[Rfam]
RNA: Antizyme RNA frameshifting stimulation element
Organism: Chlorocebus sabaeus
RNA sequence: UGAUGCCCCUCGCGUAUCUGAAGAUUCCGGGUGGGCGAGGGAAUCGUCAAAGGGAUC
Numbered sequence: 001u002g003a004u005g006c007c008c009c010u011c012g013c014g015u016a017u018c019u020g021a022a023g024a025u026u027c028c029g030g031g032u033g034g035g036c037g038a039g040g041g042a043a044u045c046g047u048c049a050a051a052g053g054g055a056u057c
Stems, first nucleotide, its partner, number of pairs: 007041005013035001015033004023057006